Rfam assigns this 365-nucleotide RNA from Geothrix sp. to the family "Bacterial RNase P class A". Ribonuclease P (RNase P) is a ubiquitous endoribonuclease, found in archaea, bacteria and eukarya as well as chloroplasts and mitochondria. Its best characterised activity is the generation of mature 5'-ends of tRNAs by cleaving the 5'-leader elements of precursor-tRNAs. Cellular RNase Ps are ribonucleoproteins. RNA from bacterial RNase Ps retains its catalytic activity in the absence of the protein subunit, i.e. it is a ribozyme. NCBI's taxonomy places the organism under Bacteria, Pseudomonadati, Acidobacteriota, Holophagaceae, Geothrix.
RNA sequence: CUCGUGGAUCAGGGCGUCGCUGUCCGCAAGGGCAGAGGAAAGUCCGGGCUCCACAGGGUACUGGGCCUGGUAACACCAGGGCGGGGCGACCCGACGGAAAGUGCAACAGAAAACAAACCGCCGAUGGCCGCGAAAGCGGAUCAGGCAAGGGCGAAACGGUGGGGUAAGAGCCCACCGCCGGACUGGCAACAGGACGGGCACGGCAAACCCCCCAGGGAGCAAGACCAAAUAGGCCGGCGCACCGCGCAAGCGGCGAGGGUUGACCCGACCGAGCCGGCGGGUAGGUCGCACGAGGUGGGUGGCGACAUCCAUCCCAGAGGAAUGACGCUCCACGACAGAACCCGGCUUACCGAUCCACCACGGCC
Number, nucleotide and partner (000 for none) at each position: 001c000002u360003c000004g358005u357006g356007g355008a354009u353010c352011a000012g330013g329014g328015c327016g326017u325018c324019g000020c035021u034022g033023u032024c031025c030026g000027c000028a000029a000030g025031g024032g023033c022034a021035g020036a000037g000038g000039a000040a348041a347042g346043u000044c345045c344046g343047g342048g341049c219050u218051c217052c216053a000054c000055a000056g266057g265058g264059u263060a000061c215062u214063g213064g212065g211066c080067c079068u078069g077070g076071u000072a000073a000074c000075a000076c070077c069078a068079g067080g066081g095082c093083g092084g091085g090086g000087c000088g000089a000090c085091c084092c083093g082094a000095c081096g210097g209098a000099a000100a000101g208102u207103g204104c203105a000106a000107c000108a000109g000110a000111a000112a000113a000114c000115a000116a000117a000118c150119c149120g146121c145122c144123g000124a000125u000126g141127g000128c139129c138130g137131c136132g000133a000134a000135a000136g131137c130138g129139g128140a000141u126142c000143a000144g122145g121146c120147a000148a000149g119150g118151g000152c000153g000154a000155a000156a000157c000158g176159g175160u174161g173162g172163g171164g000165u000166a000167a000168g000169a000170g000171c163172c162173c161174a160175c159176c158177g199178c197179c196180g195181g000182a000183c192184u191185g190186g000187c000188a000189a000190c185191a184192g183193g000194a000195c180196g179197g178198g000199c177200a000201c000202g000203g104204c103205a000206a000207a102208c101209c097210c096211c065212c064213c063214a062215g061216g052217g051218a050219g049220c000221a000222a000223g287224a286225c285226c284227a000228a000229a000230u000231a000232g000233g278234c277235c276236g275237g274238c273239g000240c000241a000242c000243c000244g000245c000246g000247c000248a000249a000250g000251c000252g000253g000254c000255g000256a000257g000258g270259g269260u268261u267262g000263a059264c058265c057266c056267g261268a260269c259270c258271g000272a000273g238274c237275c236276g235277g234278c233279g000280g000281g000282u000283a000284g226285g225286u224287c223288g000289c000290a000291c000292g000293a000294g313295g312296u311297g310298g309299g308300u307301g306302g000303c000304g000305a000306c301307a300308u299309c298310c297311a296312u295313c294314c000315c000316a000317g000318a000319g000320g000321a000322a000323u000324g018325a017326c016327g015328c014329u013330c012331c000332a000333c000334g000335a000336c000337a000338g000339a000340a000341c048342c047343c046344g045345g044346c042347u041348u040349a000350c000351c000352g010353a009354u008355c007356c006357a005358c004359c000360a002361c000362g000363g000364c000365c000